[Rfam]
RNA sequence: CUUGACCGAGCCCAGCCACAGGGGCCGGUCGGUCGGGCGGUCCUGGCCGUACGUGGCGAGGAGCGCCUGCGCCUC
Numbered sequence: 001c002u003u004g005a006c007c008g009a010g011c012c013c014a015g016c017c018a019c020a021g022g023g024g025c026c027g028g029u030c031g032g033u034c035g036g037g038c039g040g041u042c043c044u045g046g047c048c049g050u051a052c053g054u055g056g057c058g059a060g061g062a063g064c065g066c067c068u069g070c071g072c073c074u075c
Stems, first nucleotide, its partner, number of pairs: 015025003032070002038065002043060002047056003
The record is a 75-nucleotide RNA from Streptomyces tirandamycinicus, which matches "ASpks TB sRNA" in Rfam. For this family Rfam cites "Identification of small RNAs in Mycobacterium tuberculosis" (Arnvig and Young, Mol Microbiol, 2009). The source organism's lineage runs through Bacteria, Bacillati, Kitasatosporales, Streptomycetaceae and Streptomyces.